This 81-nucleotide sequence belongs to the Rfam family "RT-18 RNA". Pairs were carried over by alignment from the consensus structure, which is taken from published work. Rfam classes the family as a small RNA.
RNA sequence: UGUCGCUUGGCAAAAAUUAAGCCGAAUCUGGAUUAGUCUAGUAGCUCCUUUUGAGCGAAAAAUUAAUAGGCAAAAAAAGAU
Dot-bracket structure: ((((....))))........(((........((((((......((.........)).....)))))).)))..........